[Rfam]
RNA: Mammalian CPEB3 ribozyme
Organism: Alligator mississippiensis
RNA sequence: AGAUGCAAGUUUGAGGUCAUAGCAAAAGUGCAGCCCUGCCAGAUUUCAACAGAUCUGUGAAUUCUGCU
Numbered sequence: 001a002g003a004u005g006c007a008a009g010u011u012u013g014a015g016g017u018c019a020u021a022g023c024a025a026a027a028g029u030g031c032a033g034c035c036c037u038g039c040c041a042g043a044u045u046u047c048a049a050c051a052g053a054u055c056u057g058u059g060a061a062u063u064c065u066g067c068u
Stems, first nucleotide, its partner, number of pairs: 013036001015035003021068004026063002040057007